The family of this 363-nucleotide sequence from a Dysgonamonadaceae bacterium is "Bacterial RNase P class A". The organism belongs to Dysgonomonadaceae, within Bacteria. Pairs were carried over by alignment from the consensus structure, which is taken from published work. The family's RNA type in Rfam is ribozyme. Ribonuclease P (RNase P) is a ubiquitous endoribonuclease, found in archaea, bacteria and eukarya as well as chloroplasts and mitochondria. It scores 247 bits against the family's covariance model.
RNA sequence: GCAGUCGGUCGGUUUGUCGCUCCGAAAUAUUGUUCGGGGAGGAAAGUCCGGGCAACACAGGGCACCAUACUUCCUAACGGGAAGCUGUUCGCGAGAGCAGAUUAGCGUAACAGAAAACAACCGUUCCGGCUUGCCGGAAUAAGGGUGAAAAGGUGAGGUAAGAGCUCACCGGAUAUCGCAGCAAUGCGGUAUGCCGUACGCAUUAUGGGUUGCAAGGCCGUGUAUAUCGGAUAGAUGUAGGGUUGCCCGCCCGAUGCCGAGGGGUAGGCCGCUAAAGAGCGAUGGCGACAUCGUCUCGUAGAUAAAUGACAGACAUCCCGACUUGUCGGGAGACAGAACCCGGCUUAUAGACCGACUGCUUUU
Number, nucleotide and partner (000 for none) at each position: 001g359002c358003a357004g356005u355006c354007g353008g352009u351010c350011g348012g314013u313014u312015u311016g310017u309018c308019g000020c039021u038022c037023c036024g035025a034026a033027a000028u000029a000030u000031u000032g000033u026034u025035c024036g023037g022038g021039g020040a000041g000042g000043a000044a346045a345046g344047u000048c343049c342050g341051g340052g339053c212054a211055a210056c209057a000058c000059a000060g248061g247062g246063c245064a000065c208066c207067a206068u205069a204070c084071u083072u082073c081074c080075u000076a000077a000078c000079g000080g074081g073082a072083a071084g070085c100086u000087g098088u097089u096090c095091g000092c000093g000094a000095g090096a089097g088098c087099a000100g085101a203102u202103u000104a000105g201106c200107g199108u198109a197110a000111c000112a000113g000114a000115a000116a000117a000118c000119a000120a000121c144122c143123g140124u139125u138126c137127c136128g135129g134130c000131u000132u000133g000134c129135c128136g127137g126138a125139a124140u123141a000142a000143g122144g121145g000146u000147g000148a000149a000150a000151a000152g170153g169154u168155g167156a166157g165158g000159u000160a000161a000162g000163a000164g000165c157166u156167c155168a154169c153170c152171g000172g194173a192174u191175a190176u189177c188178g187179c186180a185181g000182c000183a000184a000185u180186g179187c178188g177189g176190u175191a174192u173193g000194c172195c000196g000197u109198a108199c107200g106201c105202a102203u101204u069205a068206u067207g066208g065209g056210u055211u054212g053213c000214a000215a000216g270217g269218c268219c267220g000221u000222g000223u000224a000225u000226a000227u260228c259229g258230g257231a000232u000233a000234g000235a000236u000237g000238u000239a000240g252241g251242g250243u249244u000245g063246c062247c061248c060249g243250c242251c241252c240253g000254a000255u000256g000257c230258c229259g228260a227261g000262g000263g000264g000265u000266a000267g219268g218269c217270c216271g000272c000273u000274a000275a000276a000277g297278a296279g295280c293281g292282a291283u290284g289285g000286c000287g000288a000289c284290a283291u282292c281293g280294u000295c279296u278297c277298g000299u000300a000301g000302a000303u000304a000305a000306a000307u000308g018309a017310c016311a015312g014313a013314c012315a000316u000317c000318c000319c000320g000321a000322c000323u000324u000325g000326u000327c000328g000329g000330g000331a000332g000333a000334c000335a000336g000337a000338a000339c052340c051341c050342g049343g048344c046345u045346u044347a000348u011349a000350g010351a009352c008353c007354g006355a005356c004357u003358g002359c001360u000361u000362u000363u000